RNA sequence: AUGCGAUGAGUCGAUUGUGGUCUAAGACCACUUUUGCGCUGGGGAGGUCAUUAAGGCAGGAGCCGACUUUGAUAAAUUGUGUGAACCUCUUUAUCACACUCACAAGUGGAGUGCCCCGCACCUUUACCGUUUUGGUAAAGGUUUUUU
Number, nucleotide and partner (000 for none) at each position: 001a000002u000003g000004c000005g000006a000007u000008g000009a000010g000011u000012c036013g035014a034015u000016u000017g031018u030019g029020g028021u027022c026023u000024a000025a000026g022027a021028c020029c019030a018031c017032u000033u000034u014035u013036g012037c000038g000039c000040u000041g117042g116043g115044g114045a069046g068047g067048u066049c000050a000051u000052u000053a000054a000055g064056g063057c062058a000059g000060g000061a000062g057063c056064c055065g000066a048067c047068u046069u045070u096071g095072a094073u093074a092075a091076a090077u000078u000079g000080u000081g000082u000083g000084a000085a000086c000087c000088u000089c000090u076091u075092u074093a073094u072095c071096a070097c113098a112099c111100u110101c000102a000103c000104a000105a000106g000107u000108g000109g000110a100111g099112u098113g097114c044115c043116c042117c041118g000119c000120a142121c141122c140123u139124u138125u137126a136127c135128c134129g000130u000131u000132u000133u000134g128135g127136u126137a125138a124139a123140g122141g121142u120143u000144u000145u000146u000147u000